[Rfam]
RNA: SAM-I/IV (S-adenosyl methionine) riboswitch aptamer
RNA sequence: CGGCCGCAUCAAGAGUUGGGGCGAGCCCAACGCCAACCUGCUGACCGAGCAAGGUGGCCUCUCUGAAGGGAGGAUGUGGCCGAACCGGCAAUCAAACGGAUCAAG
Numbered sequence: 001c002g003g004c005c006g007c008a009u010c011a012a013g014a015g016u017u018g019g020g021g022c023g024a025g026c027c028c029a030a031c032g033c034c035a036a037c038c039u040g041c042u043g044a045c046c047g048a049g050c051a052a053g054g055u056g057g058c059c060u061c062u063c064u065g066a067a068g069g070g071a072g073g074a075u076g077u078g079g080c081c082g083a084a085c086c087g088g089c090a091a092u093c094a095a096a097c098g099g100a101u102c103a104a105g
Stems, first nucleotide, its partner, number of pairs: 006077005015031001017030001019028003032058003037054003040050003044101001046099001079089004